[Rfam]
RNA sequence: GAUGGUAGACCCAUCAGAGUCAUUGUACAGGCGAUAGCUCUAAACCAUCUAAAGUUGCUUUGAUUAAUAGUCUUGGUAUUGAGCGUUUAGUAGAAUCUAGUCCUAGGGAUUAGCAGU
Numbered sequence: 001g002a003u004g005g006u007a008g009a010c011c012c013a014u015c016a017g018a019g020u021c022a023u024u025g026u027a028c029a030g031g032c033g034a035u036a037g038c039u040c041u042a043a044a045c046c047a048u049c050u051a052a053a054g055u056u057g058c059u060u061u062g063a064u065u066a067a068u069a070g071u072c073u074u075g076g077u078a079u080u081g082a083g084c085g086u087u088u089a090g091u092a093g094a095a096u097c098u099a100g101u102c103c104u105a106g107g108g109a110u111u112a113g114c115a116g117u
Base pairs, nucleotide, nucleotide: 001015002014003013004012005011016041017040018039019038020037023034024033025032026031046116049090050089051088052087053086054080057077058076059075062072063071064070097113098112099111100110101109
RNA: Group II catalytic intron D1-D4-2
Organism: Psychroflexus torquis